A member of the RNA family "L31-Actinobacteria ribosomal protein leader" from Peterkaempfera bronchialis, 44 nucleotides long.
RNA sequence: UCGGUCCCGGUUCACGCGCGGCAGCAGCCGUACGACCCGGUGCC
Numbered sequence: 001u002c003g004g005u006c007c008c009g010g011u012u013c014a015c016g017c018g019c020g021g022c023a024g025c026a027g028c029c030g031u032a033c034g035a036c037c038c039g040g041u042g043c044c
Stems, first nucleotide, its partner, number of pairs: 003044003007040004015034002018031005